[Rfam]
RNA sequence: GGACGAGCCCUUGGAGAGAUCCAUUGAGUUGGACGCCGAAGGCGCAAGGUGGCUCCCGCCACUCAAACGCUCAGGCAAAAGGACAGGGGAAGAGAU
Numbered sequence: 001g002g003a004c005g006a007g008c009c010c011u012u013g014g015a016g017a018g019a020u021c022c023a024u025u026g027a028g029u030u031g032g033a034c035g036c037c038g039a040a041g042g043c044g045c046a047a048g049g050u051g052g053c054u055c056c057c058g059c060c061a062c063u064c065a066a067a068c069g070c071u072c073a074g075g076c077a078a079a080a081g082g083a084c085a086g087g088g089g090a091a092g093a094g095a096u
Stems, first nucleotide, its partner, number of pairs: 008089006020033004035076003038072002042070003048063004